[Rfam]
RNA sequence: UCUUCGGUGAUGGGUAAUCUGAAAAAGCUAGAGACAAACCUCUGGUCUGACAAACAGAAACUACAUUAAAAAAUAUAUGCUGGUAAAGUUGCGUGACAAGCCAAAGAUCAAUACGUAUUCGAGAGAAUAAAGUGUAUAUGUAGUGGGGUUAUAGAAGGGAAGAUUACGUU
Dot-bracket structure: (.((((....)))).)..........(.(.....(...(.((((.((((...........((((((...(.(.(.(((.(((((...(((........)))....).))..............)).))).).).)..))))))))))....)))).)....).....).)
Numbered sequence: 001u002c003u004u005c006g007g008u009g010a011u012g013g014g015u016a017a018u019c020u021g022a023a024a025a026a027g028c029u030a031g032a033g034a035c036a037a038a039c040c041u042c043u044g045g046u047c048u049g050a051c052a053a054a055c056a057g058a059a060a061c062u063a064c065a066u067u068a069a070a071a072a073a074u075a076u077a078u079g080c081u082g083g084u085a086a087a088g089u090u091g092c093g094u095g096a097c098a099a100g101c102c103a104a105a106g107a108u109c110a111a112u113a114c115g116u117a118u119u120c121g122a123g124a125g126a127a128u129a130a131a132g133u134g135u136a137u138a139u140g141u142a143g144u145g146g147g148g149u150u151a152u153a154g155a156a157g158g159g160a161a162g163a164u165u166a167c168g169u170u
Stems, first nucleotide, its partner, number of pairs: 001016001003014004027170001029168001035162001039157001041155004046147004061143006070135001072133001074131001076129003080125002082109002084106001088101003

Rfam assigns this 170-nucleotide RNA from Ruminiclostridium herbifermentans to the family "Group II catalytic intron D1-D4-3". A search with the family's covariance model found it, with a score of 62 bits. Its family is annotated with Group II intron splicing in the Gene Ontology. The family has 406 seed sequences and 4,274 matches in Rfam 15.1. A reference for the family is Chu et al. (2001), "Control of branch-site choice by a group II intron", EMBO J.